[Rfam]
The family of this 104-nucleotide sequence from Clostridium magnum is "Purine riboswitch aptamer".
RNA sequence: AAAAUGAUAAAAUUGUUCACUUAUAUAAAUCUGGCAAUAUGGGCUGGAUGUUUCUACCGAACUACCUAAAAUAGUUGUAGGCUAUAAGUGCUUUAUGCACUAUA
Number, nucleotide and partner (000 for none) at each position: 001a000002a000003a000004a000005u000006g000007a000008u000009a000010a000011a000012a000013u000014u000015g000016u000017u000018c090019a089020c088021u087022u086023a085024u084025a083026u000027a000028a000029a049030u048031c047032u046033g045034g044035c043036a000037a000038u000039a000040u000041g000042g000043g035044c034045u033046g032047g031048a030049u029050g000051u000052u000053u000054c000055u000056a000057c000058c080059g000060a076061a075062c074063u073064a072065c000066c000067u000068a000069a000070a000071a000072u064073a063074g062075u061076u060077g000078u000079a000080g058081g000082c000083u025084a024085u023086a022087a021088g020089u019090g018091c000092u000093u000094u000095a000096u000097g000098c000099a000100c000101u000102a000103u000104a000
About the family: Riboswitches are metabolite binding domains within certain messenger RNAs that serve as precision sensors for their corresponding targets. Lineage of the source: Bacteria > Bacillati > Clostridia > Eubacteriales > Clostridium magnum. The match comes from Rfam's covariance-model search (72 bits). The base pairs follow the family's consensus structure, which is taken from published work.